The record is a 170-nucleotide sequence, which matches "malK-I RNA" in Rfam.
RNA sequence: CCCACCGGGCCGACGGCACUCCACUUUAUGUCCCGGCCCGGCAAAUGAAAAGGAGGAAUACCCGCCCUGACCGGCGGUGCGGCAGUGUGGAGACCUGCCGUAACGUGCGCGAAGCCGCACAAGGCUGUUCCAUGCGGAGGCAGGACAGCCACGGUCAAAACGAAAUGGCA
Numbered sequence: 001c002c003c004a005c006c007g008g009g010c011c012g013a014c015g016g017c018a019c020u021c022c023a024c025u026u027u028a029u030g031u032c033c034c035g036g037c038c039c040g041g042c043a044a045a046u047g048a049a050a051a052g053g054a055g056g057a058a059u060a061c062c063c064g065c066c067c068u069g070a071c072c073g074g075c076g077g078u079g080c081g082g083c084a085g086u087g088u089g090g091a092g093a094c095c096u097g098c099c100g101u102a103a104c105g106u107g108c109g110c111g112a113a114g115c116c117g118c119a120c121a122a123g124g125c126u127g128u129u130c131c132a133u134g135c136g137g138a139g140g141c142a143g144g145a146c147a148g149c150c151a152c153g154g155u156c157a158a159a160a161c162g163a164a165a166u167g168g169c170a
Stems, first nucleotide, its partner, number of pairs: 006040007015032004062077004068157006078102008087094002105120005123150008133142003
Dot-bracket structure: .....(((((((..((((..........)))).))))))).....................[[[[..((((((]]]]((((((((.((....))))))))))..(((((......)))))..((((((((..(((....))))))))))).)))))).............